[Rfam]
RNA sequence: AUGGUAAUCUCUAAUCAAGAACAUGCAUCCAUCCAAGGGCCUUGAAAAGCGAGAGGGGGGGAGGUCUGGAGGGAGGGAUUCCUCUCCCACCUCCAGAAUUCAACAGUUUGCUUGUGCGUAGCCAUUGUCGACUGUGCUGACUACAUAAUGAAGCUUUUACUCCAAAAGCUAGCUAGCAGAGUCUUCGGCUAAUGCAUGCCUGGCAAACCGGCAAGUCACAAAACGGCGUCGGGCUCGGUGACGAGUCUU
Numbered sequence: 001a002u003g004g005u006a007a008u009c010u011c012u013a014a015u016c017a018a019g020a021a022c023a024u025g026c027a028u029c030c031a032u033c034c035a036a037g038g039g040c041c042u043u044g045a046a047a048a049g050c051g052a053g054a055g056g057g058g059g060g061g062a063g064g065u066c067u068g069g070a071g072g073g074a075g076g077g078a079u080u081c082c083u084c085u086c087c088c089a090c091c092u093c094c095a096g097a098a099u100u101c102a103a104c105a106g107u108u109u110g111c112u113u114g115u116g117c118g119u120a121g122c123c124a125u126u127g128u129c130g131a132c133u134g135u136g137c138u139g140a141c142u143a144c145a146u147a148a149u150g151a152a153g154c155u156u157u158u159a160c161u162c163c164a165a166a167a168g169c170u171a172g173c174u175a176g177c178a179g180a181g182u183c184u185u186c187g188g189c190u191a192a193u194g195c196a197u198g199c200c201u202g203g204c205a206a207a208c209c210g211g212c213a214a215g216u217c218a219c220a221a222a223a224c225g226g227c228g229u230c231g232g233g234c235u236c237g238g239u240g241a242c243g244a245g246u247c248u249u
Stems, first nucleotide, its partner, number of pairs: 068094003106208006126192001232247005
Rfam assigns this 249-nucleotide RNA from Salix koriyanagi to the family "Early nodulin 40". Gene Ontology term of the family: nodulation. Rfam classes the family as a non-coding RNA gene. Rfam 15.1 lists 341 matches to the family in 193 species. The base pairs follow the family's consensus structure, which is taken from published work. The source organism's lineage runs through Eukaryota, Streptophytina, Euphyllophyta, Mesangiospermae and Salix.